[Rfam]
RNA sequence: UGGCACCCAACAGUGUGGCUUUGGAUACGGGAAAAUUCUCGAGGGAAGUGGCAUGUAAGUGCUCGUCCUAAGGAAAAAAAAAAGUGAAAGUCAGUUCAAGAAAGAUCACCCUGGGAGCCUGCAGCACCGUUCUUAAAGGUACAGUAGCGCCAAACAAGAAUUAAGUAAGCAUAAAGUUUUUGUUAAGCAAUUAAAAGAAGCUUUAAAGACACAGGGAGUAAAGGUUAAGAGUAAUGAUCUUUUUAAGUUUUUUGACCUUAUUAAGGAUACCUGUCCGU
Numbered sequence: 001u002g003g004c005a006c007c008c009a010a011c012a013g014u015g016u017g018g019c020u021u022u023g024g025a026u027a028c029g030g031g032a033a034a035a036u037u038c039u040c041g042a043g044g045g046a047a048g049u050g051g052c053a054u055g056u057a058a059g060u061g062c063u064c065g066u067c068c069u070a071a072g073g074a075a076a077a078a079a080a081a082a083a084g085u086g087a088a089a090g091u092c093a094g095u096u097c098a099a100g101a102a103a104g105a106u107c108a109c110c111c112u113g114g115g116a117g118c119c120u121g122c123a124g125c126a127c128c129g130u131u132c133u134u135a136a137a138g139g140u141a142c143a144g145u146a147g148c149g150c151c152a153a154a155c156a157a158g159a160a161u162u163a164a165g166u167a168a169g170c171a172u173a174a175a176g177u178u179u180u181u182g183u184u185a186a187g188c189a190a191u192u193a194a195a196a197g198a199a200g201c202u203u204u205a206a207a208g209a210c211a212c213a214g215g216g217a218g219u220a221a222a223g224g225u226u227a228a229g230a231g232u233a234a235u236g237a238u239c240u241u242u243u244u245a246a247g248u249u250u251u252u253u254g255a256c257c258u259u260a261u262u263a264a265g266g267a268u269a270c271c272u273g274u275c276c277g278u
Base pairs, nucleotide, nucleotide: 006031007030008029013028014027015026037051038050040048091139092138095136096135105131107129112124114122145157147155162205163204164203165201166200212254213253214252215251216250217249218248219247222240223239224238225237226236227235263278265276266275267274268273
RNA: Mason-Pfizer monkey virus packaging signal
Organism: Sciurus vulgaris